[Rfam]
RNA: Hairpin ribozyme 1 from viruses-like metatranscriptomes
RNA sequence: UCAUUGUCCUAAGACUUGGAAGUCUUAGGGAAGUGAGCAAGUGAAACAUGCAGAAGUAGUGUACUACUUCUGUAGCACAUUACCUUGC
Numbered sequence: 001u002c003a004u005u006g007u008c009c010u011a012a013g014a015c016u017u018g019g020a021a022g023u024c025u026u027a028g029g030g031a032a033g034u035g036a037g038c039a040a041g042u043g044a045a046a047c048a049u050g051c052a053g054a055a056g057u058a059g060u061g062u063a064c065u066a067c068u069u070c071u072g073u074a075g076c077a078c079a080u081u082a083c084c085u086u087g088c
Base pairs, nucleotide, nucleotide: 001036002035003034004033009028010027011026012025013024014023015022037088038087039086040085041084049074050073051072052071053070054069055068056067057066058065